[Rfam]
RNA sequence: AACCUCUUUCGGGGCGGGGUGAGAUUCCCCACCGGCGGUGACGCAGCCCUCCCCGGCUGCCCAGCCCGCGAAGCCCGCGCAAACUGCACCACGCGCGAGGCCCGACCCGGUGCGAUUCCGGGGCCGACGGUAAGAGGGACGUGACGUCCCAGGCGGCGGUCACUCCCGAAGUCCGGAUGGAAGAAGGAGGAG
Numbered sequence: 001a002a003c004c005u006c007u008u009u010c011g012g013g014g015c016g017g018g019g020u021g022a023g024a025u026u027c028c029c030c031a032c033c034g035g036c037g038g039u040g041a042c043g044c045a046g047c048c049c050u051c052c053c054c055g056g057c058u059g060c061c062c063a064g065c066c067c068g069c070g071a072a073g074c075c076c077g078c079g080c081a082a083a084c085u086g087c088a089c090c091a092c093g094c095g096c097g098a099g100g101c102c103c104g105a106c107c108c109g110g111u112g113c114g115a116u117u118c119c120g121g122g123g124c125c126g127a128c129g130g131u132a133a134g135a136g137g138g139a140c141g142u143g144a145c146g147u148c149c150c151a152g153g154c155g156g157c158g159g160u161c162a163c164u165c166c167c168g169a170a171g172u173c174c175g176g177a178u179g180g181a182a183g184a185a186g187g188a189g190g191a192g
Base pairs, nucleotide, nucleotide: 003190004189005188006187007186008185009184010183017029018028019027033126034125035069036068037067038066064124065123073101074100106122107121108120109119110118128175129174130173
A member of the RNA family "FMN riboswitch aptamer (RFN element)" from Deinococcus sp. RL, 192 nucleotides long. A search with the family's covariance model found it, with a score of 80 bits. NCBI's taxonomy places the organism under Bacteria, Deinococcota, Deinococci, Deinococcaceae, Deinococcus. The RFN element is a highly conserved domain that is found frequently in the 5'-untranslated regions of prokaryotic mRNAs that encode for flavin mononucleotide (FMN) biosynthesis and transport proteins. Gene Ontology term of the family: FMN binding.